[Rfam]
RNA sequence: CACCGACAUCAAUGAUUCGUUCUGCGAACCAUGGCCAACCGCCAGAUAAGAGUGCAUACCCAGCUCUUUCAUCUGCUGUUCGCCAAUGACGCGAGUGACGAUAUUGGUGCUGAACGCAUCGGCCAGUUGACGCGCCUGUGACGCCAAAUACGCGGCGUUACAGAUAUUGGGCGGCAUAUUGCCCAAGUCUUUGGC
Numbered sequence: 001c002a003c004c005g006a007c008a009u010c011a012a013u014g015a016u017u018c019g020u021u022c023u024g025c026g027a028a029c030c031a032u033g034g035c036c037a038a039c040c041g042c043c044a045g046a047u048a049a050g051a052g053u054g055c056a057u058a059c060c061c062a063g064c065u066c067u068u069u070c071a072u073c074u075g076c077u078g079u080u081c082g083c084c085a086a087u088g089a090c091g092c093g094a095g096u097g098a099c100g101a102u103a104u105u106g107g108u109g110c111u112g113a114a115c116g117c118a119u120c121g122g123c124c125a126g127u128u129g130a131c132g133c134g135c136c137u138g139u140g141a142c143g144c145c146a147a148a149u150a151c152g153c154g155g156c157g158u159u160a161c162a163g164a165u166a167u168u169g170g171g172c173g174g175c176a177u178a179u180u181g182c183c184c185a186a187g188u189c190u191u192u193g194g195c
Stems, first nucleotide, its partner, number of pairs: 005189003012032003016028005033043003050059001062077003078135002081132002084129004091123002095119003099112002102109002136163003140159006167186006
Yersinia sRNA 276: a 195-nucleotide sequence from Yersinia mollaretii. Taxonomically the source falls in Yersinia mollaretii (Bacteria, Pseudomonadota, Gammaproteobacteria, Yersiniaceae). Pairs were carried over by alignment from the consensus structure, which was predicted with RNAfold. By type it is an antisense RNA. Rfam's curators put it in the seed alignment.